[Rfam]
RNA sequence: UGCUCGCCGCCUGGGACUUCGUCUCAACCUUUGUUUAAUAUAAGAUCUAGGUGAGCAAAGUUUCAGGUGUGCGAGCAU
Numbered sequence: 001u002g003c004u005c006g007c008c009g010c011c012u013g014g015g016a017c018u019u020c021g022u023c024u025c026a027a028c029c030u031u032u033g034u035u036u037a038a039u040a041u042a043a044g045a046u047c048u049a050g051g052u053g054a055g056c057a058a059a060g061u062u063u064c065a066g067g068u069g070u071g072c073g074a075g076c077a078u
Base pairs, nucleotide, nucleotide: 002076003075004074005073006072007071008069009068010067011066012065013064014063016061017060018059019058023055024054025053026052028051029050030049

The record is a 78-nucleotide sequence from Meloidogyne javanica, which matches "mir-87 microRNA precursor family" in Rfam.
For this family Rfam cites "Systematic discovery and characterization of fly microRNAs using 12 Drosophila genomes" (Stark et al., Genome Res, 2007).
Pairs were carried over by alignment from the consensus structure, which was predicted with RNAalifold.
Taxonomically the source falls in Meloidogyne (Eukaryota, Ecdysozoa, Rhabditida, Tylenchina).